[Rfam]
RNA: SAM riboswitch aptamer (S box leader)
RNA sequence: UCUUUAUCGCGAGUGGUGGAGGGACAGGCCCUGCGAAGCCACAGCAACCGGUCGGCGGAUGUCCGAUGCCAGGUGCUAAUUCCUUCCCGUCCGAACAGUUUCGGAGGGGACAGAUGAGGA
Numbered sequence: 001u002c003u004u005u006a007u008c009g010c011g012a013g014u015g016g017u018g019g020a021g022g023g024a025c026a027g028g029c030c031c032u033g034c035g036a037a038g039c040c041a042c043a044g045c046a047a048c049c050g051g052u053c054g055g056c057g058g059a060u061g062u063c064c065g066a067u068g069c070c071a072g073g074u075g076c077u078a079a080u081u082c083c084u085u086c087c088c089g090u091c092c093g094a095a096c097a098g099u100u101u102c103g104g105a106g107g108g109g110a111c112a113g114a115u116g117a118g119g120a
Base pairs, nucleotide, nucleotide: 001120002119003118004117005116006115007114008113013042014041015040016039017038021031022030023029026084027083028082043077044076045075046074048073049072050070051069052068081112086109087108088107090105091104092103093102094101